[Rfam]
RNA sequence: AUGGCAGCGGGAGGCUCUGACACGCGGCCCACACCCCCGGCCGCCGGGACCGCGUCGAGCCACUGGCGAGACCGACCCGCAUCGUA
Numbered sequence: 001a002u003g004g005c006a007g008c009g010g011g012a013g014g015c016u017c018u019g020a021c022a023c024g025c026g027g028c029c030c031a032c033a034c035c036c037c038c039g040g041c042c043g044c045c046g047g048g049a050c051c052g053c054g055u056c057g058a059g060c061c062a063c064u065g066g067c068g069a070g071a072c073c074g075a076c077c078c079g080c081a082u083c084g085u086a
Stems, first nucleotide, its partner, number of pairs: 004083001007080005013061003022055006029048001039073002042068004